[Rfam]
RNA sequence: UGGUGAUGUCUCUUUACCUUUAUCAAUGGGGGCACUCGGCUGUGCUGUGGGUUAUGGACCUUAGAUGCUGGUAGUUGUCAUUGGUGUGGUGUGAGGGUGGGUUGGAUGCCCG
Numbered sequence: 001u002g003g004u005g006a007u008g009u010c011u012c013u014u015u016a017c018c019u020u021u022a023u024c025a026a027u028g029g030g031g032g033c034a035c036u037c038g039g040c041u042g043u044g045c046u047g048u049g050g051g052u053u054a055u056g057g058a059c060c061u062u063a064g065a066u067g068c069u070g071g072u073a074g075u076u077g078u079c080a081u082u083g084g085u086g087u088g089g090u091g092u093g094a095g096g097g098u099g100g101g102u103u104g105g106a107u108g109c110c111c112g
Stems, first nucleotide, its partner, number of pairs: 002018003007034007035095004039090008049061005064079004098112005
Annotation:
Rfam assigns this 112-nucleotide sequence from Litchfieldia salsa to the family "epsC RNA". NCBI's taxonomy places the organism under Bacteria, Bacillati, Bacillota, Bacillaceae, Litchfieldia. The base pairs follow the family's consensus structure, which is taken from published work. The family's RNA type in Rfam is cis-regulatory element. The match comes from Rfam's covariance-model search (89 bits).